A member of the RNA family "ASdes TB sRNA" from Umezawaea tangerina, 68 nucleotides long. It scores 79 bits against the family's covariance model. The family's consensus secondary structure is taken from published work. Lineage of the source: Bacteria > Bacillati > Actinomycetota > Pseudonocardiaceae > Umezawaea. The family's RNA type in Rfam is small RNA.
RNA sequence: AGCUCGACCGGGUCGACGCCGCGGGUGACGACGAGGUAGUCGCGCAGGGCGAUGCCGUGGCGGGCCUC
Numbered sequence: 001a002g003c004u005c006g007a008c009c010g011g012g013u014c015g016a017c018g019c020c021g022c023g024g025g026u027g028a029c030g031a032c033g034a035g036g037u038a039g040u041c042g043c044g045c046a047g048g049g050c051g052a053u054g055c056c057g058u059g060g061c062g063g064g065c066c067u068c
Stems, first nucleotide, its partner, number of pairs: 004063003008059001012029002016026002035056004040052004